A member of the RNA family "Plastid-rps18 3UTR RNA" from Protea cynaroides, 57 nucleotides long. The family's RNA type in Rfam is cis-regulatory element. NCBI's taxonomy places the organism under Eukaryota, Viridiplantae, Streptophytina, Tracheophyta, Protea. Plastid rps18 is a non-coding RNA (ncRNA) present in plastids. It was identified as a short stem-loop motif in the 3 prime untranslate region (3UTR) of rps18 gene. The match comes from Rfam's covariance-model search (65 bits).
[Rfam]
RNA sequence: CACAAGUAUUUCACGAUUAAAAAGUAACCGUUUUUUGUACAGAUAAUGUAUUAAUUA
Dot-bracket structure: .................((((((((....))))))))....................